[Rfam]
RNA sequence: AAGACAAAGAGCUCUUUUAGAAUUUGUCCAGCAGCUUUUCUGAUUUUUACUGGAAGGCCCCU
Numbered sequence: 001a002a003g004a005c006a007a008a009g010a011g012c013u014c015u016u017u018u019a020g021a022a023u024u025u026g027u028c029c030a031g032c033a034g035c036u037u038u039u040c041u042g043a044u045u046u047u048u049a050c051u052g053g054a055a056g057g058c059c060c061c062u
Stems, first nucleotide, its partner, number of pairs: 034059001036057007044049001
A member of the RNA family "U7 small nuclear RNA" from Carlito syrichta, 62 nucleotides long.
Animal histone pre-mRNAs are spliced by a different mechanism than nuclear pre-mRNAs and self-splicing introns. This processing involves the U7 snRNP, which contains only one RNA species: U7.
The base pairs follow the family's consensus structure, which was predicted with PFOLD.
A search with the family's covariance model found it, with a score of 47 bits.
The organism belongs to Carlito, within Eukaryota.